This 134-nucleotide RNA from Gossypium aridum belongs to the Rfam family "MIR7502 microRNA precursor family".
NCBI's taxonomy places the organism under Eukaryota, Magnoliopsida, rosids, Malvoideae, Gossypium.
It scores 78 bits against the family's covariance model.
RNA sequence: UGUUAAAAAUUUCAUCCAUUUCUACAAUUAAAAAUUGGCGUGGCUAACAGAAUAACCAAACAGUUACUUGUUGCAUGCCAAGUGUACCUCAUGCUAAUGGAAAAAGAUAGUAGAAAUGAAUGAAAAUUUUAAUA
Numbered sequence: 001u002g003u004u005a006a007a008a009a010u011u012u013c014a015u016c017c018a019u020u021u022c023u024a025c026a027a028u029u030a031a032a033a034a035u036u037g038g039c040g041u042g043g044c045u046a047a048c049a050g051a052a053u054a055a056c057c058a059a060a061c062a063g064u065u066a067c068u069u070g071u072u073g074c075a076u077g078c079c080a081a082g083u084g085u086a087c088c089u090c091a092u093g094c095u096a097a098u099g100g101a102a103a104a105a106g107a108u109a110g111u112a113g114a115a116a117u118g119a120a121u122g123a124a125a126a127u128u129u130u131a132a133u134a
Stems, first nucleotide, its partner, number of pairs: 002133007010125006018117008028107001
Dot-bracket structure: .(((((((.((((((..((((((((..(..............................................................................)..))))))))..)))))).))))))).

Rfam 15.1 lists 74,505 matches to the family in 24 species. Its family is annotated with RISC complex and miRNA-mediated post-transcriptional gene silencing in the Gene Ontology.